[Rfam]
RNA: Potassium channel RNA editing signal
Organism: Hemibagrus wyckioides
RNA sequence: GUGGGAUAUGGAGACAUGUGUCCUAUCACGCUGGGAGGAAAAAUAGUCGGCACGUUGUGUGCCAUCGCUGGGGUUUUGACCAUUGCAUUGCCCGUGCCUGUCAUUGUGUCCAAC
Numbered sequence: 001g002u003g004g005g006a007u008a009u010g011g012a013g014a015c016a017u018g019u020g021u022c023c024u025a026u027c028a029c030g031c032u033g034g035g036a037g038g039a040a041a042a043a044u045a046g047u048c049g050g051c052a053c054g055u056u057g058u059g060u061g062c063c064a065u066c067g068c069u070g071g072g073g074u075u076u077u078g079a080c081c082a083u084u085g086c087a088u089u090g091c092c093c094g095u096g097c098c099u100g101u102c103a104u105u106g107u108g109u110c111c112a113a114c
Stems, first nucleotide, its partner, number of pairs: 001114002004111002007108005013102004018097004037077004049063003